A member of the RNA family "mir-101 microRNA precursor family" from Danionella cerebrum, 77 nucleotides long.
RNA sequence: CGUUCGUCUUCAGUUAUCAUGGUGCCGGUGCUGUGUGUGUCUGUCGAGUACAGUACUAUGAUAACUGAAGACUGACG
Numbered sequence: 001c002g003u004u005c006g007u008c009u010u011c012a013g014u015u016a017u018c019a020u021g022g023u024g025c026c027g028g029u030g031c032u033g034u035g036u037g038u039g040u041c042u043g044u045c046g047a048g049u050a051c052a053g054u055a056c057u058a059u060g061a062u063a064a065c066u067g068a069a070g071a072c073u074g075a076c077g
Stems, first nucleotide, its partner, number of pairs: 011067015027051001029050004

The base pairs follow the family's consensus structure, which was predicted with RNAalifold.